[Rfam]
RNA sequence: AUGCAGGUACUGUUACAAUACAACUGAAGUGUUCUAUUGUCAUUCCCCCUGCUUAAAGUAAUUGAUGCAUAACUAUCUCCGUUUAGCACAAUGUCUUGCUAAGACAGAGACGCUUGGCCUCAAACAU
Number, nucleotide and partner (000 for none) at each position: 001a000002u000003g052004c051005a050006g049007g048008u000009a000010c000011u000012g000013u000014u000015a040016c039017a038018a037019u036020a035021c000022a033023a032024c031025u000026g000027a000028a000029g000030u000031g024032u023033u022034c000035u020036a019037u018038u017039g016040u015041c000042a000043u000044u000045c000046c000047c000048c007049c006050u005051g004052c003053u000054u000055a000056a000057a000058g000059u000060a000061a000062u000063u000064g000065a000066u000067g000068c000069a000070u000071a000072a000073c000074u000075a000076u000077c000078u108079c107080c000081g105082u000083u102084u101085a100086g099087c000088a000089c000090a000091a000092u000093g000094u000095c000096u000097u000098g000099c086100u085101a084102a083103g000104a000105c081106a000107g079108a078109g000110a000111c000112g000113c000114u000115u000116g000117g000118c000119c000120u000121c000122a000123a000124a000125c000126a000127u000

Overview:
The family of this 127-nucleotide RNA from Sus scrofa is "Small nucleolar RNA SNORA63". For this family Rfam cites "Three small nucleolar RNAs that are involved in ribosomal RNA precursor processing" (Mishra and Eliceiri, Proc Natl Acad Sci U S A, 1997). From the family's description: E3 belongs to the H/ACA class of snoRNAs and is involved in the processing of eukaryotic pre-rRNA and has regions of complementarity to 18S rRNA. E3 is encoded in introns in the gene for protein synthesis initiation factor 4AII. By type it is an H/ACA-box small nucleolar RNA. Rfam 15.1 lists 1,279 matches to the family in 601 species.